raiA RNA: a 269-nucleotide RNA.
RNA sequence: CUCGCCCGGGUCCGUGGUUGCGCGGGCAGGCCCUUCGUGCGGCGGGAGCUGCGGGAGGGUCUACCUGGCAAGCCGAUGCCAGCCGCAGGCGAAACGGCCCACGUAAGGCGACUUCUCGUCGACUGAUCACGGUGCGGCUUAGAGGUAAGUCCUGCCCCGCCGGGGGAUACCGAGUUCCCCGCCCCGGGAGAAGGGCAGUAGUGGCUAUGGAAGGCUGCGAACCCCUCAGCAGGCGGAUGUGGGGGCGAAGACCAGGUCGGCCGGGCGAG
Numbered sequence: 001c002u003c004g005c006c007c008g009g010g011u012c013c014g015u016g017g018u019u020g021c022g023c024g025g026g027c028a029g030g031c032c033c034u035u036c037g038u039g040c041g042g043c044g045g046g047a048g049c050u051g052c053g054g055g056a057g058g059g060u061c062u063a064c065c066u067g068g069c070a071a072g073c074c075g076a077u078g079c080c081a082g083c084c085g086c087a088g089g090c091g092a093a094a095c096g097g098c099c100c101a102c103g104u105a106a107g108g109c110g111a112c113u114u115c116u117c118g119u120c121g122a123c124u125g126a127u128c129a130c131g132g133u134g135c136g137g138c139u140u141a142g143a144g145g146u147a148a149g150u151c152c153u154g155c156c157c158c159g160c161c162g163g164g165g166g167a168u169a170c171c172g173a174g175u176u177c178c179c180c181g182c183c184c185c186g187g188g189a190g191a192a193g194g195g196c197a198g199u200a201g202u203g204g205c206u207a208u209g210g211a212a213g214g215c216u217g218c219g220a221a222c223c224c225c226u227c228a229g230c231a232g233g234c235g236g237a238u239g240u241g242g243g244g245g246c247g248a249a250g251a252c253c254a255g256g257u258c259g260g261c262c263g264g265g266c267g268a269g
Stems, first nucleotide, its partner, number of pairs: 001269009012260003015254005076240003079089001081139007098132002103127001106124002110119001130247001151233005156188004192226004201218005
Background:
The sequence is in the family's curated seed alignment. The family's consensus secondary structure is taken from published work. The family's RNA type in Rfam is riboswitch.